[Rfam]
A member of the RNA family "msiK RNA", 58 nucleotides long. It is annotated as a cis-regulatory element. The base pairs follow the family's consensus structure, which is taken from published work.

RNA sequence: UGUUGGAUGCUUUCACCACGGAUCGUCCGGCACGUACCUGCCGGUGAAGGAGAUAAAA
Numbered sequence: 001u002g003u004u005g006g007a008u009g010c011u012u013u014c015a016c017c018a019c020g021g022a023u024c025g026u027c028c029g030g031c032a033c034g035u036a037c038c039u040g041c042c043g044g045u046g047a048a049g050g051a052g053a054u055a056a057a058a
Stems, first nucleotide, its partner, number of pairs: 010050006027044006